The family of this 199-nucleotide RNA sequence from Oryza meyeriana is "MIR1435 microRNA precursor family". Rfam links the family to the GO terms RISC complex and miRNA-mediated post-transcriptional gene silencing. The base pairs follow the family's consensus structure, which was predicted with RNAalifold. NCBI's taxonomy places the organism under Eukaryota, Streptophytina, Spermatophyta, Poaceae, Oryza meyeriana.
RNA sequence: UGGGUUUGUUCUAAGUCAAACUUUUACAUGUUUGUCCAAGUUUAUAGAAAAAUAUAGCAAUAUUUCCAACACAAAACAAAUAUACUAUAAAAAUAUAUUCAAUGAUGGAUUUAAUAAACUAAUUUGGUGUUGUAGAUCUUGCUACAUUUUUCUAUAAACUUAGUCAAACUUAAAGAAGUUUGACUUAGGACAAACUCAA
Numbered sequence: 001u002g003g004g005u006u007u008g009u010u011c012u013a014a015g016u017c018a019a020a021c022u023u024u025u026a027c028a029u030g031u032u033u034g035u036c037c038a039a040g041u042u043u044a045u046a047g048a049a050a051a052a053u054a055u056a057g058c059a060a061u062a063u064u065u066c067c068a069a070c071a072c073a074a075a076a077c078a079a080a081u082a083u084a085c086u087a088u089a090a091a092a093a094u095a096u097a098u099u100c101a102a103u104g105a106u107g108g109a110u111u112u113a114a115u116a117a118a119c120u121a122a123u124u125u126g127g128u129g130u131u132g133u134a135g136a137u138c139u140u141g142c143u144a145c146a147u148u149u150u151u152c153u154a155u156a157a158a159c160u161u162a163g164u165c166a167a168a169c170u171u172a173a174a175g176a177a178g179u180u181u182g183a184c185u186u187a188g189g190a191c192a193a194a195c196u197c198a199a
Stems, first nucleotide, its partner, number of pairs: 005194005011188015031168004045154008055144003059140002062137004067132002072126004